Source information: Shown here is a 146-nucleotide RNA from Propithecus coquereli, a member of the family "U11 spliceosomal RNA". On this family, see Marz et al., J Mol Evol 2008: "Evolution of spliceosomal snRNA genes in metazoan animals". The source organism's lineage runs through Eukaryota, Craniata, Vertebrata, Primates and Propithecus. A search with the family's covariance model found it, with a score of 85 bits. Rfam links the family to the GO terms mRNA 5'-splice site recognition, U11 snRNP and pre-mRNA 5'-splice site binding.

[Rfam]
RNA sequence: AAAAAGGGCUUUUGUCAUGAGAGGCACAUGUAGGGCAACUCAAUUGCUCUUCCUGCAAAAUCGACAUCAAGAGAUUUUGGAAACAUAAUUGUUUGGUAGUUGGACAGCUGGUGAUUUUGGUCCUGACAAAUUUACUCAUUGUCCAU
Number, nucleotide and partner (000 for none) at each position: 001a000002a000003a000004a000005a000006g000007g000008g084009c000010u082011u081012u080013u026014g025015u024016c023017a000018u000019g000020a000021g000022a000023g016024g015025c014026a013027c055028a054029u000030g052031u000032a050033g049034g048035g047036c046037a045038a044039c000040u000041c000042a000043a000044u038045u037046g036047c035048u034049c033050u032051u000052c030053c000054u028055g027056c079057a078058a077059a076060a075061u074062c073063g000064a000065c000066a000067u000068c000069a000070a000071g000072a000073g062074a061075u060076u059077u058078u057079g056080g012081a011082a010083a000084c008085a000086u000087a000088a000089u000090u000091g000092u000093u000094u000095g000096g000097u000098a000099g000100u000101u000102g144103g143104a142105c141106a000107g140108c000109u138110g137111g136112u000113g135114a000115u000116u000117u000118u000119g000120g000121u000122c000123c000124u000125g000126a000127c000128a000129a000130a000131u000132u000133u000134a000135c113136u111137c110138a109139u000140u107141g105142u104143c103144c102145a000146u000